[Rfam]
RNA: Phenylalanine leader peptide
RNA sequence: AAAUAUUCAACACCCGAUUUUUGUUUGGUUUCUUUUUUACUCCACCCUUUUAGGGAGGCGGACGGAAUUGGUGUAAAAACGAAAACACACAGAAUCCAUAAAGCCUCCUUCUUAGGAGGCUUUUUUGUU
Numbered sequence: 001a002a003a004u005a006u007u008c009a010a011c012a013c014c015c016g017a018u019u020u021u022u023g024u025u026u027g028g029u030u031u032c033u034u035u036u037u038u039a040c041u042c043c044a045c046c047c048u049u050u051u052a053g054g055g056a057g058g059c060g061g062a063c064g065g066a067a068u069u070g071g072u073g074u075a076a077a078a079a080c081g082a083a084a085a086c087a088c089a090c091a092g093a094a095u096c097c098a099u100a101a102a103g104c105c106u107c108c109u110u111c112u113u114a115g116g117a118g119g120c121u122u123u124u125u126u127g128u129u
Base pairs, nucleotide, nucleotide: 016096017095018094019093022091023090024089026087027086029084030083031082032081034079035078037076038075039074040073043058045055046054059070060069061068100123101122102121103120104119105118106117107116108115109114